[Rfam]
RNA sequence: ACCUUAGGAACGAAGGUUAAAACCGUCACGUCCUGUGACAAUGCCUUCAUGACCAACAUCGUGUUGG
Numbered sequence: 001a002c003c004u005u006a007g008g009a010a011c012g013a014a015g016g017u018u019a020a021a022a023c024c025g026u027c028a029c030g031u032c033c034u035g036u037g038a039c040a041a042u043g044c045c046u047u048c049a050u051g052a053c054c055a056a057c058a059u060c061g062u063g064u065u066g067g
Base pairs, nucleotide, nucleotide: 012048013047014046015045016044017043025039026038027037028036029035053067054066055065056064057063
RNA: Bacillaceae-1 RNA